[Rfam]
RNA sequence: AGUUGUCAAAGGCAAAAUCGUCGAAAGGCGAUGACGCAAAGCCACGGAUCUACUGUCUAAUAAAGACCAUGACCGCCGGGCUACCACC
Numbered sequence: 001a002g003u004u005g006u007c008a009a010a011g012g013c014a015a016a017a018u019c020g021u022c023g024a025a026a027g028g029c030g031a032u033g034a035c036g037c038a039a040a041g042c043c044a045c046g047g048a049u050c051u052a053c054u055g056u057c058u059a060a061u062a063a064a065g066a067c068c069a070u071g072a073c074c075g076c077c078g079g080g081c082u083a084c085c086a087c088c
Stems, first nucleotide, its partner, number of pairs: 012037002017032006040082004045078003049072002055067004
RNA: c-di-GMP-I riboswitch aptamer
Organism: Pontibacillus marinus